Rfam assigns this 70-nucleotide RNA to the family "RAGATH-18 RNA".
RNA sequence: CCUUUGGAGUGUUACAUCAAAUGUUAUUAGUAUUAGCAAUAAUAUGAGGGCAGACACGAUGAAUAAGGAA
Numbered sequence: 001c002c003u004u005u006g007g008a009g010u011g012u013u014a015c016a017u018c019a020a021a022u023g024u025u026a027u028u029a030g031u032a033u034u035a036g037c038a039a040u041a042a043u044a045u046g047a048g049g050g051c052a053g054a055c056a057c058g059a060u061g062a063a064u065a066a067g068g069a070a
Stems, first nucleotide, its partner, number of pairs: 001068004009057005022052003030045003

Rfam classes the family as a small RNA.